[Rfam]
RNA: Nematode snoRNA ceN39
Organism: Haemonchus placei
RNA sequence: GAGGCGGAUAGGAACCAGGCAAUAUCUGUGUGCUGCUUGGGCCGAAGACCGCCGAAAUCAUAAAGAUGUUUUAAAGGUCGUAUGUGUUGCUUUUUGUAACAUGUAUAUCACCAGAAUAUCUAACAUUG
Numbered sequence: 001g002a003g004g005c006g007g008a009u010a011g012g013a014a015c016c017a018g019g020c021a022a023u024a025u026c027u028g029u030g031u032g033c034u035g036c037u038u039g040g041g042c043c044g045a046a047g048a049c050c051g052c053c054g055a056a057a058u059c060a061u062a063a064a065g066a067u068g069u070u071u072u073a074a075a076g077g078u079c080g081u082a083u084g085u086g087u088u089g090c091u092u093u094u095u096g097u098a099a100c101a102u103g104u105a106u107a108u109c110a111c112c113a114g115a116a117u118a119u120c121u122a123a124c125a126u127u128g
Base pairs, nucleotide, nucleotide: 003053004052005051006050007049011043012042015040016039017038018037019036020035021034023032024031025030065120066119067118068117069116070115071114072113076112077111078110080106081105083103084102085101086100087099088098089097090096